This 614-nucleotide sequence from Trypanosoma brucei belongs to the Rfam family "Trypanosomatid mitochondrial small subunit ribosomal RNA". Rfam links the family to the GO terms structural constituent of ribosome and ribosome. The literature on the family includes a 2009 paper in Proc Natl Acad Sci U S A by Sharma et al., "Structure of a mitochondrial ribosome with minimal RNA".
[Rfam]
RNA sequence: AUUAUGGUCAAUUGUUAGUAUUCAUAUUAAUUUUUUUAAAUGUUUUAUCAUUUUAUAAAGGUUUAUUUUUGAAAGAUUUUUUGUAUAAAAUUUUAGGAAUAGUUAAUAAUAAUUUAUAAUUUUGAUUAGAUUGUUUUGUUAAUGCUAUUAGAUGGGUGUGGAAAAAUAAAAAAAAUAAUUAAUAUAUAUCAAUAAUAAAUUAAAUUAAUCUAUUAGUCAGAAAUGGAUGCCAGCCGUUGCGGUAAUUUCUAUGCUUUUAAAUAUUAUACAAUUAUCAUAUUAAAUUGUUAAGUGCUGAUUUAACCAAUAAAAAUAUAAAUAAUUUUUAUUUGUUUUUAAACACCAUUAGGUAUAUGCAAAUAUAAAAUUAUAGUAAUUAUAAAUUAUAUUAUAUUAUAUUUAUUCAUAUAAUUAAUAGGAUAAUAUUUGUAGUUUUUGAUACCAUGAUAAGGAUUAUAAAUUGAAAGUGGUAAUAUCAUAAUCAAAAUUUAUUAUUUAUAUUAAAUAUGUAUGUGUAGAUAAAAUAAGAAAUUAAAAAGGUAUUGUUGCCCACCAAUUUUUAUAAUAAAAAUAACGUGCAGUAAUUAAUAUAUUUAUAAAAAUAUAUUUUAGCU
Numbered sequence: 001a002u003u004a005u006g007g008u009c010a011a012u013u014g015u016u017a018g019u020a021u022u023c024a025u026a027u028u029a030a031u032u033u034u035u036u037u038a039a040a041u042g043u044u045u046u047a048u049c050a051u052u053u054u055a056u057a058a059a060g061g062u063u064u065a066u067u068u069u070u071g072a073a074a075g076a077u078u079u080u081u082u083g084u085a086u087a088a089a090a091u092u093u094u095a096g097g098a099a100u101a102g103u104u105a106a107u108a109a110u111a112a113u114u115u116a117u118a119a120u121u122u123u124g125a126u127u128a129g130a131u132u133g134u135u136u137u138g139u140u141a142a143u144g145c146u147a148u149u150a151g152a153u154g155g156g157u158g159u160g161g162a163a164a165a166a167u168a169a170a171a172a173a174a175a176u177a178a179u180u181a182a183u184a185u186a187u188a189u190c191a192a193u194a195a196u197a198a199a200u201u202a203a204a205u206u207a208a209u210c211u212a213u214u215a216g217u218c219a220g221a222a223a224u225g226g227a228u229g230c231c232a233g234c235c236g237u238u239g240c241g242g243u244a245a246u247u248u249c250u251a252u253g254c255u256u257u258u259a260a261a262u263a264u265u266a267u268a269c270a271a272u273u274a275u276c277a278u279a280u281u282a283a284a285u286u287g288u289u290a291a292g293u294g295c296u297g298a299u300u301u302a303a304c305c306a307a308u309a310a311a312a313a314u315a316u317a318a319a320u321a322a323u324u325u326u327u328a329u330u331u332g333u334u335u336u337u338a339a340a341c342a343c344c345a346u347u348a349g350g351u352a353u354a355u356g357c358a359a360a361u362a363u364a365a366a367a368u369u370a371u372a373g374u375a376a377u378u379a380u381a382a383a384u385u386a387u388a389u390u391a392u393a394u395u396a397u398a399u400u401u402a403u404u405c406a407u408a409u410a411a412u413u414a415a416u417a418g419g420a421u422a423a424u425a426u427u428u429g430u431a432g433u434u435u436u437u438g439a440u441a442c443c444a445u446g447a448u449a450a451g452g453a454u455u456a457u458a459a460a461u462u463g464a465a466a467g468u469g470g471u472a473a474u475a476u477c478a479u480a481a482u483c484a485a486a487a488u489u490u491a492u493u494a495u496u497u498a499u500a501u502u503a504a505a506u507a508u509g510u511a512u513g514u515g516u517a518g519a520u521a522a523a524a525u526a527a528g529a530a531a532u533u534a535a536a537a538a539g540g541u542a543u544u545g546u547u548g549c550c551c552a553c554c555a556a557u558u559u560u561u562a563u564a565a566u567a568a569a570a571a572u573a574a575c576g577u578g579c580a581g582u583a584a585u586u587a588a589u590a591u592a593u594u595u596a597u598a599a600a601a602a603u604a605u606a607u608u609u610u611a612g613c614u
Stems, first nucleotide, its partner, number of pairs: 011582004032076009042066002048060001051057001097405006104396005109387013125371002128368001131364001135360005142353005155344005162337007179291006195275004200270001211259002215255003219250006228244004233240002306330009425532004430527001432525005440517003443513004452483006459476001488509001490507004539550004551578003556572007587608009